[Rfam]
RNA: Small nucleolar RNA SNORD2
RNA sequence: AAGUGAAGUGAUGUUAUCUUUCGGGACUGACCUGAAAUGAAGUCACCCUUAAUGCUGAUCAUUU
Numbered sequence: 001a002a003g004u005g006a007a008g009u010g011a012u013g014u015u016a017u018c019u020u021u022c023g024g025g026a027c028u029g030a031c032c033u034g035a036a037a038u039g040a041a042g043u044c045a046c047c048c049u050u051a052a053u054g055c056u057g058a059u060c061a062u063u064u
Stems, first nucleotide, its partner, number of pairs: 001064006